[Rfam]
RNA sequence: CCCCAGGUUACCCCGUGUAGCUCCCAGUGAGCCUGCAGGGUUUUCUUUAUAUGAUCAGACCCAAUGUGGGCGGCACUGCUGCCUGGAGUCUGAGAGGAUUAUGAAAUGUGUCAGGUGAAGUGCGGCCUGGGUACCGGUG
Numbered sequence: 001c002c003c004c005a006g007g008u009u010a011c012c013c014c015g016u017g018u019a020g021c022u023c024c025c026a027g028u029g030a031g032c033c034u035g036c037a038g039g040g041u042u043u044u045c046u047u048u049a050u051a052u053g054a055u056c057a058g059a060c061c062c063a064a065u066g067u068g069g070g071c072g073g074c075a076c077u078g079c080u081g082c083c084u085g086g087a088g089u090c091u092g093a094g095a096g097g098a099u100u101a102u103g104a105a106a107u108g109u110g111u112c113a114g115g116u117g118a119a120g121u122g123c124g125g126c127c128u129g130g131g132u133a134c135c136g137g138u139g
Stems, first nucleotide, its partner, number of pairs: 001139001003137001006135002009133005020126003024122001055093006061086002066082003070079003
The family of this 139-nucleotide RNA sequence from Cavia porcellus is "small Cajal body-specific RNA 17". A reference for the family is Tycowski et al. (2004), "Guide RNAs with 5' Caps and Novel Box C/D snoRNA-like Domains for Modification of snRNAs in Metazoa", Curr Biol. Rfam describes the family as follows. scaRNAs are a specific class of small nuclear RNAs which localise to the Cajal bodies and guide the modification of RNA polymerase II transcribed spliceosomal RNAs U1, U2, U4, U5 and U12. The complete human U12-22/U4-8 scaRNA is composed of two tandem C/D box domains (termed U12-22 and U4-8). It scores 96 bits against the family's covariance model. The family's RNA type in Rfam is small Cajal body RNA.